The record is a 72-nucleotide sequence, which matches "DUF3800-IX RNA" in Rfam. Actinobacteria, Firmicutes (1 example), Nitrospirae, Proteobacteria, Verrucomicrobia (1 example). Rfam's curators put it in the seed alignment. The family's consensus secondary structure is taken from published work.
RNA sequence: GACCCGGUCCCCGAACAGUCUCCGUAUGGUGUGCGUUCCUGUCCAGGCGGCAGGAUAGGGCCCGGGUCGCCC
Numbered sequence: 001g002a003c004c005c006g007g008u009c010c011c012c013g014a015a016c017a018g019u020c021u022c023c024g025u026a027u028g029g030u031g032u033g034c035g036u037u038c039c040u041g042u043c044c045a046g047g048c049g050g051c052a053g054g055a056u057a058g059g060g061c062c063c064g065g066g067u068c069g070c071c072c
Stems, first nucleotide, its partner, number of pairs: 001068007010060003018034002020031001022029002037055005